[Rfam]
RNA: mir-196 microRNA precursor family
RNA sequence: UGAGGGGUUUAGGUAGUUUCGUGUUGUUGGGCUGUAUUUUCCCCCACAACACGAAACUGUCUUAAUUGCCUC
Dot-bracket structure: ...(.((((.(((((((((..((((((.(((..........))).))))))..))))))))).)))).)...
Numbered sequence: 001u002g003a004g005g006g007g008u009u010u011a012g013g014u015a016g017u018u019u020c021g022u023g024u025u026g027u028u029g030g031g032c033u034g035u036a037u038u039u040u041c042c043c044c045c046a047c048a049a050c051a052c053g054a055a056a057c058u059g060u061c062u063u064a065a066u067u068g069c070c071u072c
Stems, first nucleotide, its partner, number of pairs: 004069001006067004011062009022051006029044003